A member of the RNA family "mir-181 microRNA precursor family" from Ameiurus melas, 86 nucleotides long.
The match comes from Rfam's covariance-model search (59 bits).
The family has 157 seed sequences and 3,490 matches in Rfam 15.1.
On this family, see Lagos-Quintana et al., RNA 2003: "New microRNAs from mouse and human".
Lineage of the source: Eukaryota > Opisthokonta > Metazoa > Siluroidei > Ameiurus.

[Rfam]
RNA sequence: UGGUUUUGUGGAACAUUCAGCGCUGUCGGUGAGUUUGAUGUAAAUGUUACAAGAACCAUUGACCGUUGAUUGUGCCAUGCAACCUG
Numbered sequence: 001u002g003g004u005u006u007u008g009u010g011g012a013a014c015a016u017u018c019a020g021c022g023c024u025g026u027c028g029g030u031g032a033g034u035u036u037g038a039u040g041u042a043a044a045u046g047u048u049a050c051a052a053g054a055a056c057c058a059u060u061g062a063c064c065g066u067u068g069a070u071u072g073u074g075c076c077a078u079g080c081a082a083c084c085u086g
Stems, first nucleotide, its partner, number of pairs: 001086003004082002007079002014072002017069006025063007033056004
Gene Ontology terms of the family: RISC complex and miRNA-mediated post-transcriptional gene silencing.